Rfam assigns this 114-nucleotide RNA from Tropicimonas sediminicola to the family "Guanidine-I riboswitch aptamer". This family represents a conserved RNA structure found upstream of the ykkC and yxkD genes in Bacillus subtilis and related genes in other bacteria. NCBI's taxonomy places the organism under Bacteria, Pseudomonadota, Alphaproteobacteria, Rhodobacterales, Tropicimonas. The match comes from Rfam's covariance-model search (80 bits).
[Rfam]
RNA sequence: AGGCAGGGUACUUAGGGUUCCGCCCGGUUCGACGAUGCCGGGGCCUGGUCCGAGAAGUGCCGCCGGGGUGGCAAAUUCCGCCCGGGUACACGGCGGGCCAAAAUCCCGGGAGAG
Number, nucleotide and partner (000 for none) at each position: 001a000002g000003g000004c000005a000006g000007g061008g060009u059010a058011c057012u056013u000014a000015g051016g050017g000018u000019u000020c048021c047022g045023c042024c041025c040026g039027g038028u037029u000030c000031g000032a000033c000034g000035a000036u000037g028038c027039c026040g025041g024042g023043g000044c000045c022046u000047g021048g020049u000050c016051c015052g000053a000054g000055a000056a012057g011058u010059g009060c008061c007062g087063c086064c085065g000066g083067g082068g081069u080070g079071g078072c000073a000074a000075a000076u000077u000078c071079c070080g069081c068082c067083c066084g000085g064086g063087u062088a000089c109090a000091c112092g000093g000094c000095g107096g106097g105098c000099c000100a000101a000102a000103a000104u000105c097106c096107c095108g000109g089110g000111a000112g091113a000114g000